[Rfam]
RNA sequence: GAGUCCGGUAUGAGCGCGAGUGCUCGGGAAAGUUACACCCAUGCGCGUAGCGAAAGCAAUGACUGGAAUCUGUUCAUCGAGAACGCUGAUAGACAUUUCCCUCGUUACGAGAGAUCUCUAGAGUCUUUCAAUCUUCUCCUUGAAUAGGUAGGUUCUUAAGGUGAGAAAUUUGGCUAAGCUCCAUAUUGCAUCAUCGUCCAACCUAUCUGCCCUUAGGGUCGAUUGGCUUGUGAUUGAGCGCUCAUACUGGGACCCGAAAGAUGGUGAACUAUGCCUGAGCAGGAUGAAGCCAGAGGAAACUCUGGUGGAGGUCCGAAGGCGUUCUGACGUGCAAAUCGAUGCUCAGACUUGGGUAUAGGGGCGAAAGACCAAUCGAACCGUCUAGUAGCUGGUU
Numbered sequence: 001g002a003g004u005c006c007g008g009u010a011u012g013a014g015c016g017c018g019a020g021u022g023c024u025c026g027g028g029a030a031a032g033u034u035a036c037a038c039c040c041a042u043g044c045g046c047g048u049a050g051c052g053a054a055a056g057c058a059a060u061g062a063c064u065g066g067a068a069u070c071u072g073u074u075c076a077u078c079g080a081g082a083a084c085g086c087u088g089a090u091a092g093a094c095a096u097u098u099c100c101c102u103c104g105u106u107a108c109g110a111g112a113g114a115u116c117u118c119u120a121g122a123g124u125c126u127u128u129c130a131a132u133c134u135u136c137u138c139c140u141u142g143a144a145u146a147g148g149u150a151g152g153u154u155c156u157u158a159a160g161g162u163g164a165g166a167a168a169u170u171u172g173g174c175u176a177a178g179c180u181c182c183a184u185a186u187u188g189c190a191u192c193a194u195c196g197u198c199c200a201a202c203c204u205a206u207c208u209g210c211c212c213u214u215a216g217g218g219u220c221g222a223u224u225g226g227c228u229u230g231u232g233a234u235u236g237a238g239c240g241c242u243c244a245u246a247c248u249g250g251g252a253c254c255c256g257a258a259a260g261a262u263g264g265u266g267a268a269c270u271a272u273g274c275c276u277g278a279g280c281a282g283g284a285u286g287a288a289g290c291c292a293g294a295g296g297a298a299a300c301u302c303u304g305g306u307g308g309a310g311g312u313c314c315g316a317a318g319g320c321g322u323u324c325u326g327a328c329g330u331g332c333a334a335a336u337c338g339a340u341g342c343u344c345a346g347a348c349u350u351g352g353g354u355a356u357a358g359g360g361g362c363g364a365a366a367g368a369c370c371a372a373u374c375g376a377a378c379c380g381u382c383u384a385g386u387a388g389c390u391g392g393u394u
Stems, first nucleotide, its partner, number of pairs: 005250013020046003026040003050057002160195005167187003197233002199230003202226002209219003253392002256389001260382006269358011280346001282314004289306007318343004323339002326337002360370002
The record is a 394-nucleotide part of an RNA from Guillardia theta, which matches "Eukaryotic large subunit ribosomal RNA" in Rfam. The sequence is in the family's curated seed alignment. The source organism's lineage runs through Eukaryota, Cryptophyceae, Pyrenomonadales, Geminigeraceae and Guillardia.